[Rfam]
This 149-nucleotide RNA from Pseudaminobacter salicylatoxidans belongs to the Rfam family "Alphaproteobacterial sRNA ar9". A search with the family's covariance model found it, with a score of 111 bits. The pairing is the family consensus, mapped onto this sequence. The organism belongs to Pseudaminobacter, within Bacteria.
RNA sequence: AUAAUCGAGAGGGCAGAGUAAACAAUCUGCUCUCCUACGCGGUCAAAGUCUUGGGAGGAUGCGAUCUAGGCGCGAUUAUCCGCAGCCGCCGGUGACGGAAAGCAGAUCGGACGCGUUCAAUUGCAAGGCCUCGUGCCUUGCAUUUUUUU
Numbered sequence: 001a002u003a004a005u006c007g008a009g010a011g012g013g014c015a016g017a018g019u020a021a022a023c024a025a026u027c028u029g030c031u032c033u034c035c036u037a038c039g040c041g042g043u044c045a046a047a048g049u050c051u052u053g054g055g056a057g058g059a060u061g062c063g064a065u066c067u068a069g070g071c072g073c074g075a076u077u078a079u080c081c082g083c084a085g086c087c088g089c090c091g092g093u094g095a096c097g098g099a100a101a102g103c104a105g106a107u108c109g110g111a112c113g114c115g116u117u118c119a120a121u122u123g124c125a126a127g128g129c130c131u132c133g134u135g136c137c138u139u140g141c142a143u144u145u146u147u148u149u
Stems, first nucleotide, its partner, number of pairs: 003149002011032006038115004048060004063108005069087003072083003089098003122142008